[Rfam]
RNA sequence: AAUAGGAGCAUAACAAAUCAGAUUUUUUUCUCUUAAUUUUCAUCUUUUUCCUUCUAAAAGAAUUCAAAUACAACUAAAAAUGCUAAAAAUCGAAAGGAAAAAUAUGAUUUGUGAUGCUCCUAUU
Numbered sequence: 001a002a003u004a005g006g007a008g009c010a011u012a013a014c015a016a017a018u019c020a021g022a023u024u025u026u027u028u029u030c031u032c033u034u035a036a037u038u039u040u041c042a043u044c045u046u047u048u049u050c051c052u053u054c055u056a057a058a059a060g061a062a063u064u065c066a067a068a069u070a071c072a073a074c075u076a077a078a079a080a081u082g083c084u085a086a087a088a089a090u091c092g093a094a095a096g097g098a099a100a101a102a103u104a105u106g107a108u109u110u111g112u113g114a115u116g117c118u119c120c121u122a123u124u
Stems, first nucleotide, its partner, number of pairs: 001124011013112008022103001024102005030096002033093002036090005042084001046080004
RNA: MIR7504 microRNA precursor family